[Rfam]
RNA sequence: CCUAGCACUUACGUGCCAGGCUGAGCUAUGCCGUGCUUUCAGCACU
Numbered sequence: 001c002c003u004a005g006c007a008c009u010u011a012c013g014u015g016c017c018a019g020g021c022u023g024a025g026c027u028a029u030g031c032c033g034u035g036c037u038u039u040c041a042g043c044a045c046u
Stems, first nucleotide, its partner, number of pairs: 001020003005016004033045005
Description: This 46-nucleotide RNA sequence from Lentisphaera araneosa belongs to the Rfam family "Acido-Lenti-1 RNA". The sequence is in the family's curated seed alignment. The base pairs follow the family's consensus structure, which is taken from published work. NCBI's taxonomy places the organism under Bacteria, Pseudomonadati, Lentisphaerota, Lentisphaerales, Lentisphaera araneosa.